[Rfam]
RNA sequence: CUUCAUCGAGUUCACUCCUCCUCCCAGAACUCGAUAAGGAAUACGGCACUCCUCCUCCCAAGCCGUAUUCAAGAUCAGGCCGCGCAUCCUCCUCCCGCGCGGCCUUUUUC
Numbered sequence: 001c002u003u004c005a006u007c008g009a010g011u012u013c014a015c016u017c018c019u020c021c022u023c024c025c026a027g028a029a030c031u032c033g034a035u036a037a038g039g040a041a042u043a044c045g046g047c048a049c050u051c052c053u054c055c056u057c058c059c060a061a062g063c064c065g066u067a068u069u070c071a072a073g074a075u076c077a078g079g080c081c082g083c084g085c086a087u088c089c090u091c092c093u094c095c096c097g098c099g100c101g102g103c104c105u106u107u108u109u110c
Stems, first nucleotide, its partner, number of pairs: 003037001005035001007033007039070009077105009